[Rfam]
RNA sequence: CAUCAACGACAGGGGAGCGUCCGUUCCCGCGGCCUUGGGCCGGCCGGGACGGGACGCUGAGAGUGCGGACCACCGCAGACCCUCGAACCUGCUCCGGUUAGUACCGGCGAAGGGAGUCGAGUUCUCAGAGUG
Numbered sequence: 001c002a003u004c005a006a007c008g009a010c011a012g013g014g015g016a017g018c019g020u021c022c023g024u025u026c027c028c029g030c031g032g033c034c035u036u037g038g039g040c041c042g043g044c045c046g047g048g049a050c051g052g053g054a055c056g057c058u059g060a061g062a063g064u065g066c067g068g069a070c071c072a073c074c075g076c077a078g079a080c081c082c083u084c085g086a087a088c089c090u091g092c093u094c095c096g097g098u099u100a101g102u103a104c105c106g107g108c109g110a111a112g113g114g115a116g117u118c119g120a121g122u123u124c125u126c127a128g129a130g131u132g
Stems, first nucleotide, its partner, number of pairs: 007119004011083004017057005064077005088113003094107004
Dot-bracket structure: ......((((((((..(((((...............................)))))......(((((....)))))..))))....(((...((((......))))...)))..)))).............
RNA: TPP riboswitch aptamer (THI element)
Organism: Arthrobacter mobilis